Shown here is a 74-nucleotide sequence from Rattus norvegicus, a member of the family "Small nucleolar RNA SNORD73". It scores 70 bits against the family's covariance model. The family has 25 seed sequences and 769 matches in Rfam 15.1. NCBI's taxonomy places the organism under Eukaryota, Tetrapoda, Amniota, Muridae, Rattus. Its family is annotated with RNA processing and nucleolus in the Gene Ontology. For this family Rfam cites "A novel snoRNA (U73) is encoded within the introns of the human and mouse ribosomal protein S3a genes" (Rebane et al., Gene, 1998). It is annotated as a C/D-box small nucleolar RNA.
RNA sequence: AAUGAGUGAUGACAGGAUGUUUCGGUCCCAUAUGAAUCCUACUGAUUUCACCGAUAACAUUUCUUGCUGACAUU
Numbered sequence: 001a002a003u004g005a006g007u008g009a010u011g012a013c014a015g016g017a018u019g020u021u022u023c024g025g026u027c028c029c030a031u032a033u034g035a036a037u038c039c040u041a042c043u044g045a046u047u048u049c050a051c052c053g054a055u056a057a058c059a060u061u062u063c064u065u066g067c068u069g070a071c072a073u074u
Stems, first nucleotide, its partner, number of pairs: 001074004